[Rfam]
Description:
This 62-nucleotide RNA sequence from Ruminococcaceae bacterium FB2012 belongs to the Rfam family "pemK RNA". The match comes from Rfam's covariance-model search (41 bits). Pairs were carried over by alignment from the consensus structure, which is taken from published work. NCBI's taxonomy places the organism under Bacteria, Bacillati, Bacillota, Eubacteriales, Oscillospiraceae.
RNA sequence: AUACGGGUACUUCCGCAUAAAGCGGCUCGGGCAUUGUAACCCGGGAGGUGAAAGUCCUAUGU
Numbered sequence: 001a002u003a004c005g006g007g008u009a010c011u012u013c014c015g016c017a018u019a020a021a022g023c024g025g026c027u028c029g030g031g032c033a034u035u036g037u038a039a040c041c042c043g044g045g046a047g048g049u050g051a052a053a054g055u056c057c058u059a060u061g062u
Stems, first nucleotide, its partner, number of pairs: 012059001013025004026045003030041002046058003